[Rfam]
RNA sequence: GAUAGCUCAGCAGGGUGCCAAAGUCCAGGGUUGGAUCGUUUACCACGCGCACUUCGCCAAUAUUGGCGUCGUAUAGACCGCCAAAGGCCUUGGCCUUGAUGACGAGCAAAAGAGCCCCUAGACCCAAAAUGGCGAGGUGGUGCCCCAAGAUAAAGCCCAAUUGCUUGGAGUCAGCCCA
Numbered sequence: 001g002a003u004a005g006c007u008c009a010g011c012a013g014g015g016u017g018c019c020a021a022a023g024u025c026c027a028g029g030g031u032u033g034g035a036u037c038g039u040u041u042a043c044c045a046c047g048c049g050c051a052c053u054u055c056g057c058c059a060a061u062a063u064u065g066g067c068g069u070c071g072u073a074u075a076g077a078c079c080g081c082c083a084a085a086g087g088c089c090u091u092g093g094c095c096u097u098g099a100u101g102a103c104g105a106g107c108a109a110a111a112g113a114g115c116c117c118c119u120a121g122a123c124c125c126a127a128a129a130u131g132g133c134g135a136g137g138u139g140g141u142g143c144c145c146c147a148a149g150a151u152a153a154a155g156c157c158c159a160a161u162u163g164c165u166u167g168g169a170g171u172c173a174g175c176c177c178a
Stems, first nucleotide, its partner, number of pairs: 136175001138173004145168004
The record is a 178-nucleotide sequence from Nodosilinea sp. LEGE 07088, which matches "Antisense RNA which regulates isiA expression" in Rfam. The organism belongs to Nodosilinea, within Bacteria. The literature on the family includes a 2006 paper in Proc Natl Acad Sci U S A by Duhring et al., "An internal antisense RNA regulates expression of the photosynthesis gene isiA".